[Rfam]
RNA sequence: CGACGUCUUCAGGGCGGGGUGCGAUUCCCCACCGGCGGUAGGUCGCCCAGCGACGAGCCCGCGAGCGCCUUGGGCAGCCUGCGAGUUCCUCGCGCAGGUUGCCGAAGGGUCAGCAGAUCCGGUCCGAUGCCGGAGCCGACGGUCAUAGUCCGGAUGAAAGAAGACGGCA
Dot-bracket structure: ...(((((((......(((.......))).[[((((((..................[[))))..((..............................................))...(((((.......)))))]])).(((.....]]))).......)))))))...
RNA: FMN riboswitch aptamer (RFN element)
Organism: Pseudoxanthomonas sp. Root65